Rfam assigns this 127-nucleotide RNA from Lasius niger to the family "U4atac minor spliceosomal RNA". Taxonomically the source falls in Lasius (Eukaryota, Eumetazoa, Insecta, Aculeata). On this family, see Shukla et al., Nucleic Acids Res 2002: "Domains of human U4atac snRNA required for U12-dependent splicing in vivo". It scores 83 bits against the family's covariance model. Clan: U4 clan. Rfam describes the family as follows. U4atac is an essential component of the minor U12-type spliceosome complex which is required for removal of the rarer class of eukaryotic introns (AT-AC, U12-type). Gene Ontology terms of the family: U4atac snRNP, mRNA 5'-splice site recognition and pre-mRNA 5'-splice site binding.
[Rfam]
RNA sequence: AGUGUCCUUGUCUUUGGGGAGCAAAGUGUUCAAUGAUCGUUUAGUGAGAAUGCUGUUGCUGAAACCCAUUGUUAAAAUUAAUUAACUGCAUCCGUGUUUUAAACCACGAGAUGCAAUUUUUGGAAGG
Numbered sequence: 001a002g003u004g005u006c007c008u009u010g011u012c013u014u015u016g017g018g019g020a021g022c023a024a025a026g027u028g029u030u031c032a033a034u035g036a037u038c039g040u041u042u043a044g045u046g047a048g049a050a051u052g053c054u055g056u057u058g059c060u061g062a063a064a065c066c067c068a069u070u071g072u073u074a075a076a077a078u079u080a081a082u083u084a085a086c087u088g089c090a091u092c093c094g095u096g097u098u099u100u101a102a103a104c105c106a107c108g109a110g111a112u113g114c115a116a117u118u119u120u121u122g123g124a125a126g127g
Base pairs, nucleotide, nucleotide: 005019006018007017008016021059022058023057024056025054026053027052028051029050030049031048038044088114089113090112091111092110093108094107095106096105098103
Dot-bracket structure: ....((((.......)))).(((((((((((......(.....)...))))))).))))............................(((((((((.(....).)))).))))).............